[Rfam]
RNA sequence: GGAAUUCUGCGCGGUGCGUGGUUCGCCUAAAAACCCCGGGGCCAAUAAAGAUCUCCAGGGAGCUGUUCCUGGUCUUGGCUGUGGCCUUGAUCACACGGCGCCCACCUGCUUUUGCAGGCCUUGGAGGUUUUUGCGGCCACGGCCCAUCGUGGAGCCGCC
Numbered sequence: 001g002g003a004a005u006u007c008u009g010c011g012c013g014g015u016g017c018g019u020g021g022u023u024c025g026c027c028u029a030a031a032a033a034c035c036c037c038g039g040g041g042c043c044a045a046u047a048a049a050g051a052u053c054u055c056c057a058g059g060g061a062g063c064u065g066u067u068c069c070u071g072g073u074c075u076u077g078g079c080u081g082u083g084g085c086c087u088u089g090a091u092c093a094c095a096c097g098g099c100g101c102c103c104a105c106c107u108g109c110u111u112u113u114g115c116a117g118g119c120c121u122u123g124g125a126g127g128u129u130u131u132u133g134c135g136g137c138c139a140c141g142g143c144c145c146a147u148c149g150u151g152g153a154g155c156c157g158c159c
Base pairs, nucleotide, nucleotide: 005154006153007152008151009150010149011148013144014143015142017141018140019139033128034127035126036124038122039121040120041119042118043117058103059102060101062099063098064097065096066095071092072091073090074089077086078085079084
Background: This 159-nucleotide RNA from Enhydrobacter aerosaccus belongs to the Rfam family "6S / SsrS RNA". It scores 52 bits against the family's covariance model. E. coli 6S RNA was the first non coding RNA to be sequenced, but its function was unknown until recently. It consists of 184 nucleotides that fold into an extended hairpin structure with a large single-stranded internal bulge. The 6S RNA specifically associates with RNA polymerase holoenzyme containing the sigma70 specificity factor. Lineage of the source: Bacteria > Pseudomonadati > Alphaproteobacteria > Hyphomicrobiales > Enhydrobacter.